[Rfam]
RNA: tRNA
RNA sequence: GUUUCCGUAGCUCAGCUGGAUAGAGCGACCGCCUCCUAAGCGGUAGGUCGGAGGUUCAAAUCCUCUUAGCGACG
Numbered sequence: 001g002u003u004u005c006c007g008u009a010g011c012u013c014a015g016c017u018g019g020a021u022a023g024a025g026c027g028a029c030c031g032c033c034u035c036c037u038a039a040g041c042g043g044u045a046g047g048u049c050g051g052a053g054g055u056u057c058a059a060a061u062c063c064u065c066u067u068a069g070c071g072a073c074g
Stems, first nucleotide, its partner, number of pairs: 001073003005069001007067001010026004028044005050066005